[Rfam]
RNA sequence: UCAAAAUGAAAACUCUGAAGCAAUUACACCUAAGUCUACUGAUAAGGUUUACUUGCCGCGAUGUUAUCGCCGGGUAUGCUGUAGAAAUACGUAUGCCUCCCGAAUUUUGGAAAGGUGUUUUUUAAAUGCAACA
Numbered sequence: 001u002c003a004a005a006a007u008g009a010a011a012a013c014u015c016u017g018a019a020g021c022a023a024u025u026a027c028a029c030c031u032a033a034g035u036c037u038a039c040u041g042a043u044a045a046g047g048u049u050u051a052c053u054u055g056c057c058g059c060g061a062u063g064u065u066a067u068c069g070c071c072g073g074g075u076a077u078g079c080u081g082u083a084g085a086a087a088u089a090c091g092u093a094u095g096c097c098u099c100c101c102g103a104a105u106u107u108u109g110g111a112a113a114g115g116u117g118u119u120u121u122u123u124a125a126a127u128g129c130a131a132c133a
Stems, first nucleotide, its partner, number of pairs: 003127001011119003015115002020056004025051002028048003034043003058070005072098008081090003099110002
Overview: The family of this 133-nucleotide sequence from Orbus hercynius is "Molybdenum/Tungsten riboswitch aptamer (Moco RNA motif)". Lineage of the source: Bacteria > Pseudomonadota > Gammaproteobacteria > Orbaceae > Orbus.